[Rfam]
RNA sequence: GGUCAGGCUUGGUCUAGUGGUUACUUCGUUAAUAAACAAUUCUAUGUCAUGGAAUAAAACCCACACAAUAGUGUAAGCACCACGGACGCUACCCUGAUCUUUU
Numbered sequence: 001g002g003u004c005a006g007g008c009u010u011g012g013u014c015u016a017g018u019g020g021u022u023a024c025u026u027c028g029u030u031a032a033u034a035a036a037c038a039a040u041u042c043u044a045u046g047u048c049a050u051g052g053a054a055u056a057a058a059a060c061c062c063a064c065a066c067a068a069u070a071g072u073g074u075a076a077g078c079a080c081c082a083c084g085g086a087c088g089c090u091a092c093c094c095u096g097a098u099c100u101u102u103u
Stems, first nucleotide, its partner, number of pairs: 002098006012087004017083004025077002028074002

The record is a 103-nucleotide RNA sequence from Lottia gigantea, which matches "Vault RNA" in Rfam. The family has 73 seed sequences and 2,873 matches in Rfam 15.1. It is annotated as a non-coding RNA gene. The literature on the family includes a 2009 paper in Mol Biol Evol by Stadler et al., "Evolution of Vault RNAs".